[Rfam]
RNA sequence: CUGGCAGGGAUUGUGUGUAUCGGGGUUGUGCUACAAUCGUUGCAUUUUUCCAAAAGAGUUCCCUGCAAAACAAAUCUGGGGAAGAUGGGCAGUUGUGUUUCAGUUUGCUGUUGAAAAUAAUAACAAUCAUGGCCACUACAUUU
Numbered sequence: 001c002u003g004g005c006a007g008g009g010a011u012u013g014u015g016u017g018u019a020u021c022g023g024g025g026u027u028g029u030g031c032u033a034c035a036a037u038c039g040u041u042g043c044a045u046u047u048u049u050c051c052a053a054a055a056g057a058g059u060u061c062c063c064u065g066c067a068a069a070a071c072a073a074a075u076c077u078g079g080g081g082a083a084g085a086u087g088g089g090c091a092g093u094u095g096u097g098u099u100u101c102a103g104u105u106u107g108c109u110g111u112u113g114a115a116a117a118u119a120a121u122a123a124c125a126a127u128c129a130u131g132g133c134c135a136c137u138a139c140a141u142u143u
Base pairs, nucleotide, nucleotide: 004066005065006064007063008062009061010060015045016044017043018042019041078137079136081134085130086129087128088127092124093123094122095121
RNA: small nucleolar RNA snoR135